[Rfam]
RNA sequence: GCGGAGGGCUGGAUGGCCGCGGCAGGGGCAACCCUGUCGAGGAAAGUCCGGACUCCAAGAAGAAACGGUGCCGGGUAACGCUCGGGCAGGGCAACCUGACGGAUAGCGCCACAGAGAACAGACUGCCCGUCGCACCCAAGGUGGAUUUCAGGCGCAAGCCGGGGACGAAUCGAGGGGGAUUGUGGACGGGUGAGGGUGAAACGGUGGGGUAAGAGCCCACCGGGGGGCUGGCAACAGCGCUCGCAUGGCAAGCCCCACCGGGAGCAACGCCGAAUAGGGACCCCGCGCGGGAUUGAUCCGGGAAACCGGAUAUCAUCGCAGGGCCGCUUCUGCCCAGGGGUCCGGGUUGGCAGCUUGAGCCACGUAGCAAUGCGUGGCCCAGAGGAAUGGUCAUCUCCGGCAGGGCAACCUGUCGCAGACAGAAUCCGGCUUACAGGCCCUCCGCGCAC
Numbered sequence: 001g002c003g004g005a006g007g008g009c010u011g012g013a014u015g016g017c018c019g020c021g022g023c024a025g026g027g028g029c030a031a032c033c034c035u036g037u038c039g040a041g042g043a044a045a046g047u048c049c050g051g052a053c054u055c056c057a058a059g060a061a062g063a064a065a066c067g068g069u070g071c072c073g074g075g076u077a078a079c080g081c082u083c084g085g086g087c088a089g090g091g092c093a094a095c096c097u098g099a100c101g102g103a104u105a106g107c108g109c110c111a112c113a114g115a116g117a118a119c120a121g122a123c124u125g126c127c128c129g130u131c132g133c134a135c136c137c138a139a140g141g142u143g144g145a146u147u148u149c150a151g152g153c154g155c156a157a158g159c160c161g162g163g164g165a166c167g168a169a170u171c172g173a174g175g176g177g178g179a180u181u182g183u184g185g186a187c188g189g190g191u192g193a194g195g196g197u198g199a200a201a202c203g204g205u206g207g208g209g210u211a212a213g214a215g216c217c218c219a220c221c222g223g224g225g226g227g228c229u230g231g232c233a234a235c236a237g238c239g240c241u242c243g244c245a246u247g248g249c250a251a252g253c254c255c256c257a258c259c260g261g262g263a264g265c266a267a268c269g270c271c272g273a274a275u276a277g278g279g280a281c282c283c284c285g286c287g288c289g290g291g292a293u294u295g296a297u298c299c300g301g302g303a304a305a306c307c308g309g310a311u312a313u314c315a316u317c318g319c320a321g322g323g324c325c326g327c328u329u330c331u332g333c334c335c336a337g338g339g340g341u342c343c344g345g346g347u348u349g350g351c352a353g354c355u356u357g358a359g360c361c362a363c364g365u366a367g368c369a370a371u372g373c374g375u376g377g378c379c380c381a382g383a384g385g386a387a388u389g390g391u392c393a394u395c396u397c398c399g400g401c402a403g404g405g406c407a408a409c410c411u412g413u414c415g416c417a418g419a420c421a422g423a424a425u426c427c428g429g430c431u432u433a434c435a436g437g438c439c440c441u442c443c444g445c446g447c448a449c
Stems, first nucleotide, its partner, number of pairs: 001445010011434001012395007020039008044432003048429005053264004062329002066260005071085005086100001087098004101255002106253002108249003123195002125191007203221006222244001223242003227238004269351003278343006321335004359378008